[Rfam]
This 99-nucleotide RNA from Methylophaga thalassica belongs to the Rfam family "Guanidine-I riboswitch aptamer". It scores 89 bits against the family's covariance model. Rfam links the family to the GO term regulation of gene expression. Taxonomically the source falls in Methylophaga thalassica (Bacteria, Pseudomonadati, Pseudomonadota, Gammaproteobacteria).

RNA sequence: AAAUAAGGUUUCUAGGGUUCCGAUCAACGAUGAUGUCUGGACCGAGAGUAACCGACCUUCACAGUGAAGGUUACACGGAGGGAUAAAAGCCCGGGAGAU
Numbered sequence: 001a002a003a004u005a006a007g008g009u010u011u012c013u014a015g016g017g018u019u020c021c022g023a024u025c026a027a028c029g030a031u032g033a034u035g036u037c038u039g040g041a042c043c044g045a046g047a048g049u050a051a052c053c054g055a056c057c058u059u060c061a062c063a064g065u066g067a068a069g070g071u072u073a074c075a076c077g078g079a080g081g082g083a084u085a086a087a088a089g090c091c092c093g094g095g096a097g098a099u
Base pairs, nucleotide, nucleotide: 007053008052009051010050012048015043016042020040021039022037023034024033025032026031054072055071056070057069058068059067060066061065074094076097080092081091082090